[Rfam]
RNA sequence: GUAUUGCUGUGAUGACAUCUUUUAGGACGGUAUCUGAGCGAGGUAUGUAUCCUCGCAUGAUUAUACCUAAUCUGAGACAAAUGCCUGAGCAAAUU
Numbered sequence: 001g002u003a004u005u006g007c008u009g010u011g012a013u014g015a016c017a018u019c020u021u022u023u024a025g026g027a028c029g030g031u032a033u034c035u036g037a038g039c040g041a042g043g044u045a046u047g048u049a050u051c052c053u054c055g056c057a058u059g060a061u062u063a064u065a066c067c068u069a070a071u072c073u074g075a076g077a078c079a080a081a082u083g084c085c086u087g088a089g090c091a092a093a094u095u
Stems, first nucleotide, its partner, number of pairs: 001095001004092004038056006

A member of the RNA family "Small nucleolar RNA Z118/Z121/Z120" from Eragrostis curvula, 95 nucleotides long. The family has 7 seed sequences and 435 matches in Rfam 15.1. The literature on the family includes a 2003 paper in Nucleic Acids Res by Chen et al., "The high diversity of snoRNAs in plants: identification and comparative study of 120 snoRNA genes from Oryza sativa". A search with the family's covariance model found it, with a score of 75 bits. NCBI's taxonomy places the organism under Eukaryota, Viridiplantae, Euphyllophyta, Poales, Eragrostis.